[Rfam]
RNA sequence: AAAAAAGUGAAAGGGGUCACAGCAGGAGCUUUCGUGUCGCGGCCCCUGUCAGAUGCACGCGUCUGCGAAUCCUGCU
Numbered sequence: 001a002a003a004a005a006a007g008u009g010a011a012a013g014g015g016g017u018c019a020c021a022g023c024a025g026g027a028g029c030u031u032u033c034g035u036g037u038c039g040c041g042g043c044c045c046c047u048g049u050c051a052g053a054u055g056c057a058c059g060c061g062u063c064u065g066c067g068a069a070u071c072c073u074g075c076u
Base pairs, nucleotide, nucleotide: 013046014045015044016043017042018041021076022075023074024073025072026071027070028040029039050065051064052063053062054061055060
RNA: Mammalian CPEB3 ribozyme
Organism: Neodiprion lecontei